[Rfam]
About this RNA
Rfam assigns this 57-nucleotide RNA from Corynebacterium choanae to the family "msiK RNA". Rfam classes the family as a cis-regulatory element.
Nucleotides: 057
Base pairs, nucleotide, nucleotide: 009049011048012047013046014045015044026043027042028041029040030039031038
Number, partner (000 for none) and nucleotide at each position: 001000a002000c003000a004000c005000u006000a007000a008000a009049c010000a011048c012047u013046c014045c015044a016000c017000u018000c019000g020000g021000a022000u023000c024000g025000u026043c027042c028041g029040g030039c031038a032000c033000g034000u035000a036000c037000c038031u039030g040029c041028c042027g043026g044015u045014g046013g047012a048011g049009g050000a051000a052000c053000a054000c055000c056000a057000u
Pairs were carried over by alignment from the consensus structure, which is taken from published work. The source organism's lineage runs through Bacteria, Bacillati, Actinomycetota, Mycobacteriales and Corynebacterium.